[Rfam]
RNA sequence: AUGGCAAGCCGUCUUAUCGCUGCGCUGCAAGGCGGAGAGGAAAGUCCGGGCAACACAGAGCAUCCUACUUCCUAACGGGAAGGGUCUUUUCGGGGAACGGAAAAGAUACAGCCAGUGCCACAGAAAAUUACCGCCUUUACAGUAAAACAGUUAGCAGUAAACAGUUACCAGAUUAUUCUGAUGACUGAUACCUGAUAACUGUAAACUGAAAAGGUAAGGGUGAAAAGGUGCGGUAAGAGCGCACCAGUACGUCCGGCGACGGCGUAGCUGGGUAAACCUUAGGAGUUGAAAGACCAAAUAGGUCCCGAACGUGGAGUUGCUCGCUCCCUGGUAGCUUCGGCUGCUUGUCGGGAUGGGUAGGUUGAUGGAGCCUGGGCGUGAGCCCUGGCCUAGAUAAAUGAUAAGAGUUGCAGCUUUGCUGCGGCACAGAACCCGGCUUACAGGCUUGCUAUAUUU
Number, nucleotide and partner (000 for none) at each position: 001a452002u451003g450004g449005c448006a447007a446008g445009c444010c443011g441012u406013c405014u404015u403016a402017u401018c400019g000020c037021u036022g000023c034024g033025c032026u031027g000028c000029a000030a000031g026032g025033c024034g023035g000036a021037g020038a000039g000040g000041a000042a439043a438044g437045u000046c436047c435048g434049g433050g432051c288052a287053a286054c285055a000056c000057a000058g000059a000060g000061c000062a000063u284064c283065c282066u281067a280068c082069u081070u080071c079072c078073u000074a000075a000076c000077g000078g072079g071080a070081a069082g068083g109084g107085u106086c105087u104088u103089u102090u101091c100092g000093g000094g000095g000096a000097a000098c000099g000100g091101a090102a089103a088104a087105g086106a085107u084108a000109c083110a279111g278112c000113c000114a000115g277116u276117g273118c272119c271120a000121c000122a000123g000124a000125a000126a000127a000128u000129u000130a000131c219132c218133g215134c214135c213136u212137u211138u210139a000140c208141a207142g206143u205144a000145a000146a000147a000148c000149a000150g000151u000152u000153a000154g000155c000156a000157g000158u000159a000160a000161a000162c000163a000164g000165u000166u000167a000168c000169c000170a000171g000172a000173u000174u000175a000176u000177u000178c000179u000180g000181a000182u000183g000184a000185c000186u000187g000188a000189u000190a000191c000192c000193u000194g000195a000196u000197a000198a000199c000200u000201g000202u000203a000204a000205a143206c142207u141208g140209a000210a138211a137212a136213g135214g134215u133216a000217a000218g132219g131220g000221u000222g000223a000224a000225a000226a000227g245228g244229u243230g242231c241232g240233g000234u000235a000236a000237g000238a000239g000240c232241g231242c230243a229244c228245c227246a000247g268248u266249a265250c264251g263252u000253c262254c261255g260256g000257c000258g000259a000260c255261g254262g253263c251264g250265u249266a248267g000268c247269u000270g000271g119272g118273u117274a000275a000276a116277c115278c111279u110280u067281a066282g065283g064284a063285g054286u053287u052288g051289a000290a000291a000292g363293a362294c361295c360296a000297a000298a000299u000300a000301g000302g354303u353304c352305c351306c350307g349308a000309a000310c000311g000312u000313g000314g000315a000316g000317u000318u000319g000320c000321u000322c000323g000324c000325u000326c000327c000328c000329u000330g000331g000332u000333a000334g000335c000336u000337u000338c000339g000340g000341c000342u000343g000344c000345u000346u000347g000348u000349c307350g306351g305352g304353a303354u302355g000356g000357g000358u000359a000360g295361g294362u293363u292364g000365a000366u000367g000368g000369a000370g389371c388372c387373u000374g385375g384376g383377c382378g000379u000380g000381a000382g377383c376384c375385c374386u000387g372388g371389c370390c000391u000392a000393g000394a000395u000396a000397a000398a000399u000400g018401a017402u016403a015404a014405g013406a012407g000408u000409u000410g000411c000412a000413g000414c000415u000416u000417u000418g000419c000420u000421g000422c000423g000424g000425c000426a000427c000428a000429g000430a000431a000432c050433c049434c048435g047436g046437c044438u043439u042440a000441c011442a000443g010444g009445c008446u007447u006448g005449c004450u003451a002452u001453a000454u000455u000456u000
RNA: Bacterial RNase P class A
Organism: Adhaeribacter aerolatus